[Rfam]
Nucleotides: 169
Base pairs, nucleotide, nucleotide: 010160011159012158013157014156015155016154017153018152019151020150022148023147024146025145026144027143028142029141030140032138033137
Number, partner (000 for none) and nucleotide at each position: 001000u002000u003000g004000u005000u006000u007000g008000c009000a010160g011159g012158u013157g014156u015155a016154g017153c018152a019151u020150c021000u022148u023147c024146a025145a026144g027143a028142u029141u030140c031000a032138c033137a034000u035000g036000c037000a038000a039000a040000u041000g042000c043000a044000c045000g046000g047000u048000g049000g050000u051000g052000a053000a054000u055000g056000g057000u058000g059000a060000u061000u062000a063000u064000a065000g066000u067000a068000a069000c070000g071000u072000a073000c074000u075000c076000u077000c078000u079000u080000u081000a082000a083000c084000c085000c086000c087000c088000c089000g090000c091000c092000c093000c094000c095000c096000u097000u098000u099000c100000u101000u102000c103000u104000c105000u106000u107000c108000c109000u110000a111000a112000u113000u114000u115000c116000a117000u118000u119000c120000c121000c122000a123000a124000a125000g126000u127000u128000c129000c130000u131000u132000g133000a134000a135000a136000g137033u138032g139000a140030g141029a142028a143027u144026c145025u146024u147023g148022a149000u150020g151019a152018u153017g154016c155015u156014g157013c158012a159011u160010c161000g162000g163000c164000a165000a166000u167000a168000a169000a